The record is a 36-nucleotide RNA sequence, which matches "DUF805b RNA" in Rfam.
[Rfam]
RNA sequence: UAGGCGAAUUCCGAAAAGCCAAUGAGAGAGUAGGAG
Numbered sequence: 001u002a003g004g005c006g007a008a009u010u011c012c013g014a015a016a017a018g019c020c021a022a023u024g025a026g027a028g029a030g031u032a033g034g035a036g
Stems, first nucleotide, its partner, number of pairs: 003020003010035003
The base pairs follow the family's consensus structure, which is taken from published work. Rfam classes the family as a cis-regulatory element.